[Rfam]
RNA: SAM (S-adenosyl methionine) riboswitch aptamer
RNA sequence: GGUCAUGAGUGACAGUCAUGAGGCCCCGGCCGACUGUCCGGCAACCCUCCGUCCGUGGCGGGGUGCCCCGGGUGAGGACCAGGCCGUAGCCAGAAGGCUUACGGCAAGCACGUGAC
Dot-bracket structure: ((((....(.((((((.....((......)).)))))))(((..(((.((......))..))).))).........))))..(((((((((....)))).)))))...........